[Rfam]
RNA sequence: GGCCAGCAUCAAGAGUCGGGCCGACGCCCGGCACCAACCUGCCCCGUGCAAGGUGGUGCCUCUGUCCAUGGAUGGAGGGAUGUGGCCGAACCGGCAACACGGUGUUCAAGC
Numbered sequence: 001g002g003c004c005a006g007c008a009u010c011a012a013g014a015g016u017c018g019g020g021c022c023g024a025c026g027c028c029c030g031g032c033a034c035c036a037a038c039c040u041g042c043c044c045c046g047u048g049c050a051a052g053g054u055g056g057u058g059c060c061u062c063u064g065u066c067c068a069u070g071g072a073u074g075g076a077g078g079g080a081u082g083u084g085g086c087c088g089a090a091c092c093g094g095c096a097a098c099a100c101g102g103u104g105u106u107c108a109a110g111c
Base pairs, nucleotide, nucleotide: 006083007082008081009080010079015032017030018029019028020027021026033057034056035055038053039052040051041049042048045104046103085095086094087093088092
This 111-nucleotide RNA from Sphingomonas sp. WG belongs to the Rfam family "SAM-I/IV (S-adenosyl methionine) riboswitch aptamer". The organism belongs to Sphingomonas, within Bacteria. It scores 47 bits against the family's covariance model. Pairs were carried over by alignment from the consensus structure, which is taken from published work. Its Rfam clan is "SAM clan".